[Rfam]
RNA sequence: CGGGAAGGACGGCCUUCCUGCCCUCAUCAACGAACGGGACGGCCCGU
Numbered sequence: 001c002g003g004g005a006a007g008g009a010c011g012g013c014c015u016u017c018c019u020g021c022c023c024u025c026a027u028c029a030a031c032g033a034a035c036g037g038g039a040c041g042g043c044c045c046g047u
Stems, first nucleotide, its partner, number of pairs: 001020008034047005
Dot-bracket structure: ((((((((....)))))))).............(((((....)))))

Rfam assigns this 47-nucleotide RNA from Brucella intermedia to the family "Guanidine-II riboswitch aptamer (mini-ykkC)". Simpler in structure and has fewer highly conserved nucleotide positions than the ykkC-yxkD leader. The family has 72 seed sequences and 1,589 matches in Rfam 15.1.